RNA sequence: GUGAAAUGAUGAUUGAGUUUAUCCAUUCGCUGAGUACGCUGCAUCAACCUUCUUCCAAGCCUCAGUUCCUGUUCUAGGAACUGGUUGCUAAGUAGCCUCUAAAUGCCCUGCAGUCUGUGGUGUUCUGCUAUGGACAGCUUGUGUGUUGGUGGACUACAGGUAAGAAUGGUUGGUGUCAGCAGGGAUGGGACAGAGGGUCCCAUCCCACCAAGAUGAGUGGUGGAAAUCUGAUCAC
Numbered sequence: 001g002u003g004a005a006a007u008g009a010u011g012a013u014u015g016a017g018u019u020u021a022u023c024c025a026u027u028c029g030c031u032g033a034g035u036a037c038g039c040u041g042c043a044u045c046a047a048c049c050u051u052c053u054u055c056c057a058a059g060c061c062u063c064a065g066u067u068c069c070u071g072u073u074c075u076a077g078g079a080a081c082u083g084g085u086u087g088c089u090a091a092g093u094a095g096c097c098u099c100u101a102a103a104u105g106c107c108c109u110g111c112a113g114u115c116u117g118u119g120g121u122g123u124u125c126u127g128c129u130a131u132g133g134a135c136a137g138c139u140u141g142u143g144u145g146u147u148g149g150u151g152g153a154c155u156a157c158a159g160g161u162a163a164g165a166a167u168g169g170u171u172g173g174u175g176u177c178a179g180c181a182g183g184g185a186u187g188g189g190a191c192a193g194a195g196g197g198u199c200c201c202a203u204c205c206c207a208c209c210a211a212g213a214u215g216a217g218u219g220g221u222g223g224a225a226a227u228c229u230g231a232u233c234a235c
Base pairs, nucleotide, nucleotide: 010234011233012232013231014230017227018226019225020224023220024219025218026217027216028215029214030212031211034208035207038180039179040178041177042175043174044173045172046171047170048169049168050166051165052164053163054162055160056159058089059088060087063084065081066080067079068078069077070076092157093156094155095154097152098151105144106143107141110138111137113135114134115133116132117131118130119129120128121127122126182206183205184204185203186202187201188200189199191197
RNA: Small nucleolar RNA SNORD17